About this RNA
This 84-nucleotide RNA from Propithecus coquereli belongs to the Rfam family "NoRC associated RNA, pRNA". On this family, see Mayer et al., EMBO Rep 2008: "The structure of NoRC-associated RNA is crucial for targeting the chromatin remodelling complex NoRC to the nucleolus". The base pairs follow the family's consensus structure, which is taken from published work. The source organism's lineage runs through Eukaryota, Deuterostomia, Strepsirrhini, Lemuriformes and Propithecus.
RNA sequence: CGCUGGGGACCUGUUGGGGACAGGUGGCCAUGUCGAGUGUCGCGGGGGCAGGCGUGGUCAAGUGGCCCGUCCCCGUCCCCGUCC
Dot-bracket structure: ...((.((........(((......(.((..((((.((.............)).))))...).).).....)))...))))...
The family's RNA type in Rfam is non-coding RNA gene. A search with the family's covariance model found it, with a score of 36 bits.